[Rfam]
RNA sequence: AGAGUGUGCUCAGAGCAGGGGACUAAAGAUUGGUUCCUCUGUUUAUAAUACACCCAAUAGGAAUCUGGGGUUUUGUAAGGAAGGGCACAAAAAUGGAGUGGCCUUACCAAGGUUCCUUUUGAU
Numbered sequence: 001a002g003a004g005u006g007u008g009c010u011c012a013g014a015g016c017a018g019g020g021g022a023c024u025a026a027a028g029a030u031u032g033g034u035u036c037c038u039c040u041g042u043u044u045a046u047a048a049u050a051c052a053c054c055c056a057a058u059a060g061g062a063a064u065c066u067g068g069g070g071u072u073u074u075g076u077a078a079g080g081a082a083g084g085g086c087a088c089a090a091a092a093a094u095g096g097a098g099u100g101g102c103c104u105u106a107c108c109a110a111g112g113u114u115c116c117u118u119u120u121g122a123u
Base pairs, nucleotide, nucleotide: 002055004053005052006051007050008049013044014043015042016041017040018039019038020037021036022034023033024032068117069116070115076110079108080107082104083103084102086100087099088098